RNA: Mammalian CPEB3 ribozyme
Organism: Alligator sinensis
RNA sequence: AACUGCCCUAAUGGCCAUAGCAGGAGCGCACAGGUCGCGGCCCUGUCUGACUCAGACAAACCUGCAAAUUCUGCU
Numbered sequence: 001a002a003c004u005g006c007c008c009u010a011a012u013g014g015c016c017a018u019a020g021c022a023g024g025a026g027c028g029c030a031c032a033g034g035u036c037g038c039g040g041c042c043c044u045g046u047c048u049g050a051c052u053c054a055g056a057c058a059a060a061c062c063u064g065c066a067a068a069u070u071c072u073g074c075u
Stems, first nucleotide, its partner, number of pairs: 013042004019075007026038003047064001049062001052059001